Shown here is a 411-nucleotide RNA from Actinospica robiniae, a member of the family "Bacterial RNase P class A". Ribonuclease P (RNase P) is a ubiquitous endoribonuclease, found in archaea, bacteria and eukarya as well as chloroplasts and mitochondria. It is annotated as a ribozyme. NCBI's taxonomy places the organism under Bacteria, Actinomycetes, Actinospicaceae, Actinospica, Actinospica robiniae. A search with the family's covariance model found it, with a score of 286 bits.
RNA sequence: CGAGUCGGUCGGGCGGCCGCGAGCACGCCGGGAGACCGGCGGGUUCGAGGAAAGUCCGGGCUCCACAGGGCAGGGUGGUUGGUAACGCCAACCCGGGGUGACCCGCGGGACAGUGCCACAGAAAACAGACCGCCGUCGCGGGACUCGUCCGGCGACGGUAAGGGUGAAACGGUGCGGUAAGAGCGCACCAGCGCCCACGGUGACGUGGGCGGCUCGGUAAACCCCACCCGGAGCAAGGUCGAGAAGGAGCGAGCGCCAGCCCGCUCCGCGCAGAUGCUUGAGGGCGACCCGCCCGAGUCUGCGGGUAGACCGCUCGAGGCGCACGGCGACGUGCGUCCUAGAUGGAUGGUCGCCACGGGCCCGGCUUACGCAGGGCACGUACAGAACCCGGCUUACAGACCGGCUCGCCGC
Numbered sequence: 001c002g003a004g005u006c007g008g009u010c011g012g013g014c015g016g017c018c019g020c021g022a023g024c025a026c027g028c029c030g031g032g033a034g035a036c037c038g039g040c041g042g043g044u045u046c047g048a049g050g051a052a053a054g055u056c057c058g059g060g061c062u063c064c065a066c067a068g069g070g071c072a073g074g075g076u077g078g079u080u081g082g083u084a085a086c087g088c089c090a091a092c093c094c095g096g097g098g099u100g101a102c103c104c105g106c107g108g109g110a111c112a113g114u115g116c117c118a119c120a121g122a123a124a125a126c127a128g129a130c131c132g133c134c135g136u137c138g139c140g141g142g143a144c145u146c147g148u149c150c151g152g153c154g155a156c157g158g159u160a161a162g163g164g165u166g167a168a169a170c171g172g173u174g175c176g177g178u179a180a181g182a183g184c185g186c187a188c189c190a191g192c193g194c195c196c197a198c199g200g201u202g203a204c205g206u207g208g209g210c211g212g213c214u215c216g217g218u219a220a221a222c223c224c225c226a227c228c229c230g231g232a233g234c235a236a237g238g239u240c241g242a243g244a245a246g247g248a249g250c251g252a253g254c255g256c257c258a259g260c261c262c263g264c265u266c267c268g269c270g271c272a273g274a275u276g277c278u279u280g281a282g283g284g285c286g287a288c289c290c291g292c293c294c295g296a297g298u299c300u301g302c303g304g305g306u307a308g309a310c311c312g313c314u315c316g317a318g319g320c321g322c323a324c325g326g327c328g329a330c331g332u333g334c335g336u337c338c339u340a341g342a343u344g345g346a347u348g349g350u351c352g353c354c355a356c357g358g359g360c361c362c363g364g365c366u367u368a369c370g371c372a373g374g375g376c377a378c379g380u381a382c383a384g385a386a387c388c389c390g391g392c393u394u395a396c397a398g399a400c401c402g403g404c405u406c407g408c409c410g411c
Base pairs, nucleotide, nucleotide: 001407002406003405004404005403006402007401008400009399010398011396012354013353014352015351016350017349018348020047021046022045023044024043026041027040028039029038030037052394053393054392056391057390058389059388060387061233062232063231064230068290069289070288073229074228075227076226077225078092079091080090081089082088093107094105095104096103097102108224109223113222114221115218116217117216130163131162132159133158134157135156136155137154138153139152171189172188173187174186175185176184191213192211193210194209195208196207197206198205199204237311238310239309240308270302271301272300273299274298275297282294283293284292285291318337319336320335321334322333323332324331325330